[Rfam]
RNA sequence: UGGGGUCCUCGGUAGUGGCUCUCGGAUAUUUAUGCCGACGGCUUCGAUCGAUGAUCUCC
Number, nucleotide and partner (000 for none) at each position: 001u000002g058003g057004g056005g055006u054007c053008c000009u051010c050011g049012g048013u047014a000015g000016u000017g043018g042019c041020u040021c000022u038023c037024g036025g035026a000027u034028a033029u000030u000031u000032a000033u028034g027035c025036c024037g023038a022039c000040g020041g019042c018043u017044u000045c000046g000047a013048u012049c011050g010051a009052u000053g007054a006055u005056c004057u003058c002059c000
Rfam assigns this 59-nucleotide sequence to the family "Actino-pnp RNA". Rfam classes the family as a cis-regulatory element. The base pairs follow the family's consensus structure, which is taken from published work.